RNA sequence: UAACAUACCCACGCCUCACCAGGACUAAACAGCGUGGUAAAACAACAGUCCUUCAUACCUCUGCUUAGGGUGCAGAGGAAUAGUAACUCCA
Number, nucleotide and partner (000 for none) at each position: 001u000002a000003a000004c000005a000006u000007a000008c000009c000010c036011a035012c034013g033014c032015c000016u000017c000018a000019c000020c000021a052022g051023g050024a049025c048026u000027a000028a000029a000030c000031a000032g014033c013034g012035u011036g010037g000038u000039a000040a000041a000042a000043c000044a000045a000046c000047a000048g025049u024050c023051c022052u021053u000054c000055a000056u000057a000058c078059c077060u076061c075062u074063g073064c072065u000066u000067a000068g000069g000070g000071u000072g064073c063074a062075g061076a060077g059078g058079a000080a000081u000082a000083g000084u000085a000086a000087c000088u000089c000090c000091a000